Source information: The family of this 262-nucleotide sequence from Hungatella hathewayi is "Bacterial large signal recognition particle RNA". Clan: SRP clan. Rfam classes the family as a non-coding RNA gene.
RNA sequence: CCGCGCAGCCGGGGAGAUAGCGGUGCCCUGUACCUGCAAUCCGCUCUAGCAGGGGUGAUGUCUUACCCCGGGUAUGUUAUUGCAGAGCUGCCCUUUGUAAGUGGCGAUGACGUUUGGGUCUUACGCAACGGGAAUUCAUGAACCGUGUCAGGACAGGAAUGUAGCAGCACUAAGUGAAACCUUCCGUGUGCCGUGAGGCUGCCUGGACUGAGUUAACUGCAGAGGUAACGUCUGUGAUAGCUAUUCAAAGUAAGACGCGCGG
Numbered sequence: 001c002c003g004c005g006c007a008g009c010c011g012g013g014g015a016g017a018u019a020g021c022g023g024u025g026c027c028c029u030g031u032a033c034c035u036g037c038a039a040u041c042c043g044c045u046c047u048a049g050c051a052g053g054g055g056u057g058a059u060g061u062c063u064u065a066c067c068c069c070g071g072g073u074a075u076g077u078u079a080u081u082g083c084a085g086a087g088c089u090g091c092c093c094u095u096u097g098u099a100a101g102u103g104g105c106g107a108u109g110a111c112g113u114u115u116g117g118g119u120c121u122u123a124c125g126c127a128a129c130g131g132g133a134a135u136u137c138a139u140g141a142a143c144c145g146u147g148u149c150a151g152g153a154c155a156g157g158a159a160u161g162u163a164g165c166a167g168c169a170c171u172a173a174g175u176g177a178a179a180c181c182u183u184c185c186g187u188g189u190g191c192c193g194u195g196a197g198g199c200u201g202c203c204u205g206g207a208c209u210g211a212g213u214u215a216a217c218u219g220c221a222g223a224g225g226u227a228a229c230g231u232c233u234g235u236g237a238u239a240g241c242u243a244u245u246c247a248a249a250g251u252a253a254g255a256c257g258c259g260c261g262g
Base pairs, nucleotide, nucleotide: 001262002261003260004259005258006257008056009055010054011029012028013027014026016024018022033053034052035051036050037049061255062254063253064252065251066250070246071245072244073243074242076241077240078239079238080237081236082235083234084233085232089227090226093224094223095222096221097220098219101217102216103214104213105212112208113207114206115205116204117203118202119201120197121196122195123194124193125192126188127187129186130185131184132183133182135178136177137176138175139174145170146169147168148167153162154161155160